Shown here is a 125-nucleotide RNA sequence from Peribacillus deserti, a member of the family "pan motif". A search with the family's covariance model found it, with a score of 55 bits. By type it is a cis-regulatory element. Taxonomically the source falls in Peribacillus (Bacteria, Bacillota, Caryophanales, Bacillaceae). Pairs were carried over by alignment from the consensus structure, which is taken from published work.
RNA sequence: UGGGCGGUAUCAUGGGAAGGGGAAUGUCUGCCUCUCCCUAAAAGGAACUGCACCUGAUUCAUACGUUAGUAUUCUUUUAAAAUGCAUAUCUGCCUUGAUCCAAUGAGAUGGACUGGGACAGAGGG
Numbered sequence: 001u002g003g004g005c006g007g008u009a010u011c012a013u014g015g016g017a018a019g020g021g022g023a024a025u026g027u028c029u030g031c032c033u034c035u036c037c038c039u040a041a042a043a044g045g046a047a048c049u050g051c052a053c054c055u056g057a058u059u060c061a062u063a064c065g066u067u068a069g070u071a072u073u074c075u076u077u078u079a080a081a082a083u084g085c086a087u088a089u090c091u092g093c094c095u096u097g098a099u100c101c102a103a104u105g106a107g108a109u110g111g112a113c114u115g116g117g118a119c120a121g122a123g124g125g
Stems, first nucleotide, its partner, number of pairs: 002054002004051005010046002090121003093117003097113001099112003